[Rfam]
RNA sequence: UGUUGCGAGUUCGAGGCCAUAGAAGAAGCACUCAUGGUGCGGCCCUGUCAGAUUCCAACAAAUCUGCAAAUUCUGCC
Numbered sequence: 001u002g003u004u005g006c007g008a009g010u011u012c013g014a015g016g017c018c019a020u021a022g023a024a025g026a027a028g029c030a031c032u033c034a035u036g037g038u039g040c041g042g043c044c045c046u047g048u049c050a051g052a053u054u055c056c057a058a059c060a061a062a063u064c065u066g067c068a069a070a071u072u073c074u075g076c077c
Base pairs, nucleotide, nucleotide: 013045015044016043017042018041022076024074025073026072027071028040029039030038049066050065051064052063053062054061
RNA: Mammalian CPEB3 ribozyme